[Rfam]
RNA: c-di-GMP-I riboswitch aptamer
RNA sequence: ACUUAAUAAAGGCAAACUUAUUUAAAGGUAAGGACGCAAAGCCAUGAGUCUAAAGGAUCUUUUCCCAUGAUAGUCAGGUCGCUAAG
Numbered sequence: 001a002c003u004u005a006a007u008a009a010a011g012g013c014a015a016a017c018u019u020a021u022u023u024a025a026a027g028g029u030a031a032g033g034a035c036g037c038a039a040a041g042c043c044a045u046g047a048g049u050c051u052a053a054a055g056g057a058u059c060u061u062u063u064c065c066c067a068u069g070a071u072a073g074u075c076a077g078g079u080c081g082c083u084a085a086g
Stems, first nucleotide, its partner, number of pairs: 012037002017032006041079003045076003048071003055065003